Shown here is a 78-nucleotide RNA from Folsomia candida, a member of the family "mir-2796 microRNA precursor family".
The source organism's lineage runs through Eukaryota, Pancrustacea, Isotomidae, Proisotominae and Folsomia.
The match comes from Rfam's covariance-model search (77 bits).
RNA sequence: AAGUAGGGACAGGGGUUUCUGUCGGCCUCCAGCCGUUAAAGCUUGUUGUAGGCCGACGGAAACUACUUGCCUCUACUU
Number, nucleotide and partner (000 for none) at each position: 001a000002a000003g000004u000005a074006g073007g072008g071009a000010c069011a068012g067013g066014g064015g063016u062017u061018u060019c059020u058021g000022u056023c055024g054025g053026c052027c051028u050029c000030c048031a047032g046033c000034c000035g000036u000037u000038a000039a000040a000041g000042c000043u000044u000045g000046u032047u031048g030049u000050a028051g027052g026053c025054c024055g023056a022057c000058g020059g019060a018061a017062a016063c015064u014065a000066c013067u012068u011069g010070c000071c008072u007073c006074u005075a000076c000077u000078u000